[Rfam]
Small Cajal body specific RNA 6: a 269-nucleotide sequence from Sarcophilus harrisii.
The organism belongs to Sarcophilus, within Eukaryota.
On this family, see Darzacq et al., EMBO J 2002: "Cajal body-specific small nuclear RNAs: a novel class of 2'-O-methylation and pseudouridylation guide RNAs".
The family's RNA type in Rfam is small Cajal body RNA.
RNA sequence: GGUCAGUGAUGAAGAGUAAAAGGUCUGAUUACCCUGAGAUGAUUCCACCUCCCAGUUCCCAGCAGCCUCUUGGCUGUCAGGCUCUAGUUGUGCCGUGGCUAAGCUGAGGCCUGCUGACAUCACGGGGUGCCCCGCACACGUGUGUGUGUUUGCUUGAGUUCCAGUGAAUGCACCAUAGUGGUUGGCGUCCAACAGUGGGAGUCGGCAAGGAAUAAGGGUGGCGGGAACACAUCUCUUGGGGUCUGAUCUGAACCUUGCUAACUGAGGCC
Numbered sequence: 001g002g003u004c005a006g007u008g009a010u011g012a013a014g015a016g017u018a019a020a021a022g023g024u025c026u027g028a029u030u031a032c033c034c035u036g037a038g039a040u041g042a043u044u045c046c047a048c049c050u051c052c053c054a055g056u057u058c059c060c061a062g063c064a065g066c067c068u069c070u071u072g073g074c075u076g077u078c079a080g081g082c083u084c085u086a087g088u089u090g091u092g093c094c095g096u097g098g099c100u101a102a103g104c105u106g107a108g109g110c111c112u113g114c115u116g117a118c119a120u121c122a123c124g125g126g127g128u129g130c131c132c133c134g135c136a137c138a139c140g141u142g143u144g145u146g147u148g149u150u151u152g153c154u155u156g157a158g159u160u161c162c163a164g165u166g167a168a169u170g171c172a173c174c175a176u177a178g179u180g181g182u183u184g185g186c187g188u189c190c191a192a193c194a195g196u197g198g199g200a201g202u203c204g205g206c207a208a209g210g211a212a213u214a215a216g217g218g219u220g221g222c223g224g225g226a227a228c229a230c231a232u233c234u235c236u237u238g239g240g241g242u243c244u245g246a247u248c249u250g251a252a253c254c255u256u257g258c259u260a261a262c263u264g265a266g267g268c269c
Stems, first nucleotide, its partner, number of pairs: 001269004037249004044225003048221002056212004060116006076099004081094001082092001124190001126189006144173010